[Rfam]
Shown here is a 95-nucleotide RNA sequence from Cryptosporangium arvum, a member of the family "Glycine riboswitch aptamer". NCBI's taxonomy places the organism under Bacteria, Actinomycetota, Actinomycetes, Cryptosporangiales, Cryptosporangium arvum. Gene Ontology term of the family: glycine biosynthetic process.
RNA sequence: UCACCCCGUGCGGGAGAGUCCUUGGGCAGCCGGCUCAGGGCGCCGAAGGAGCAACCUCCCCGGAACCUCUCAGGCCCACGGACCGUGCGGUGCGG
Numbered sequence: 001u002c003a004c005c006c007c008g009u010g011c012g013g014g015a016g017a018g019u020c021c022u023u024g025g026g027c028a029g030c031c032g033g034c035u036c037a038g039g040g041c042g043c044c045g046a047a048g049g050a051g052c053a054a055c056c057u058c059c060c061c062g063g064a065a066c067c068u069c070u071c072a073g074g075c076c077c078a079c080g081g082a083c084c085g086u087g088c089g090g091u092g093c094g095g
Stems, first nucleotide, its partner, number of pairs: 006090008020040006042075003045071002049069003055063002